[Rfam]
RNA sequence: CAAUUGAUGCUGCUUUUGGCCUCUGGCCGUUGACUCGAUCCUGGCGCACCUUCCCCGGUGCCAGGCUCUCCAACGGCCAGGGACUAAAGGCAGUAACAAGAUCUGA
Numbered sequence: 001c002a003a004u005u006g007a008u009g010c011u012g013c014u015u016u017u018g019g020c021c022u023c024u025g026g027c028c029g030u031u032g033a034c035u036c037g038a039u040c041c042u043g044g045c046g047c048a049c050c051u052u053c054c055c056c057g058g059u060g061c062c063a064g065g066c067u068c069u070c071c072a073a074c075g076g077c078c079a080g081g082g083a084c085u086a087a088a089g090g091c092a093g094u095a096a097c098a099a100g101a102u103c104u105g106a
Base pairs, nucleotide, nucleotide: 010093011092012091013090014089015088016087018085019084021082022081023080024079025078026077027076028075029074030073031072032071037067040065041064042063043062044061045060046059047058
Description: The record is a 106-nucleotide sequence, which matches "mraW RNA" in Rfam. Rfam's curators put it in the seed alignment.